Rfam assigns this 67-nucleotide RNA from Micromonospora globbae to the family "Transposase-2 RNA". A search with the family's covariance model found it, with a score of 73 bits.
[Rfam]
RNA sequence: GAAGCGUGAACCCGGCACGGCACCCGCCGGUCAGACCGGGACCGUCCCACCGCAAGGAGGGACUACC
Numbered sequence: 001g002a003a004g005c006g007u008g009a010a011c012c013c014g015g016c017a018c019g020g021c022a023c024c025c026g027c028c029g030g031u032c033a034g035a036c037c038g039g040g041a042c043c044g045u046c047c048c049a050c051c052g053c054a055a056g057g058a059g060g061g062a063c064u065a066c067c
Stems, first nucleotide, its partner, number of pairs: 011040005018029004044063005050057002